RNA sequence: GGUUGUAAUCCCGGCGAUCUGGAGACGUUCUGGACAGGGGUUCGAUUCCCCUCACCUCCACCCAAGGGCAGACGCAAGACCGGUAAGCCGACGAUGUUCUUGGGUGGGGGUGCACUGGCUUCGACAGGGCGGAUGAAGGAAAGCAGGCAACCCGAAAGGCGACGAACGUAAUUCGCGCAAAUCCACAAACGCCAACGAUGAGCGUUUUGCACUGGCCGCCUAA
Numbered sequence: 001g002g003u004u005g006u007a008a009u010c011c012c013g014g015c016g017a018u019c020u021g022g023a024g025a026c027g028u029u030c031u032g033g034a035c036a037g038g039g040g041u042u043c044g045a046u047u048c049c050c051c052u053c054a055c056c057u058c059c060a061c062c063c064a065a066g067g068g069c070a071g072a073c074g075c076a077a078g079a080c081c082g083g084u085a086a087g088c089c090g091a092c093g094a095u096g097u098u099c100u101u102g103g104g105u106g107g108g109g110g111u112g113c114a115c116u117g118g119c120u121u122c123g124a125c126a127g128g129g130c131g132g133a134u135g136a137a138g139g140a141a142a143g144c145a146g147g148c149a150a151c152c153c154g155a156a157a158g159g160c161g162a163c164g165a166a167c168g169u170a171a172u173u174c175g176c177g178c179a180a181a182u183c184c185a186c187a188a189a190c191g192c193c194a195a196c197g198a199u200g201a202g203c204g205u206u207u208u209g210c211a212c213u214g215g216c217c218g219c220c221u222a223a
Stems, first nucleotide, its partner, number of pairs: 001152005026131003030127003036052005053112017153168002

This 223-nucleotide sequence from Sulfuricystis multivorans belongs to the Rfam family "permuted transfer-messenger RNA". Rfam classes the family as a non-coding RNA gene. From the family's description: Bacterial tmRNA, also known as 10Sa RNA or SsrA, is named for its dual tRNA and mRNA-like properties.